[Rfam]
RNA sequence: GAGCACAACCACGGGAGUCCGGCGAGCCGGGCUGAGAGGGAGCGAAUCGCGCUUCGACCGUCGAACCUGAUCUGGGUCAUGCCAGCGCAGGGAGGAGUCACUGAUGAGUA
Numbered sequence: 001g002a003g004c005a006c007a008a009c010c011a012c013g014g015g016a017g018u019c020c021g022g023c024g025a026g027c028c029g030g031g032c033u034g035a036g037a038g039g040g041a042g043c044g045a046a047u048c049g050c051g052c053u054u055c056g057a058c059c060g061u062c063g064a065a066c067c068u069g070a071u072c073u074g075g076g077u078c079a080u081g082c083c084a085g086c087g088c089a090g091g092g093a094g095g096a097g098u099c100a101c102u103g104a105u106g107a108g109u110a
Stems, first nucleotide, its partner, number of pairs: 009095002011061004017032005039055005066091004072085004
RNA: TPP riboswitch aptamer (THI element)
Organism: Microbacterium foliorum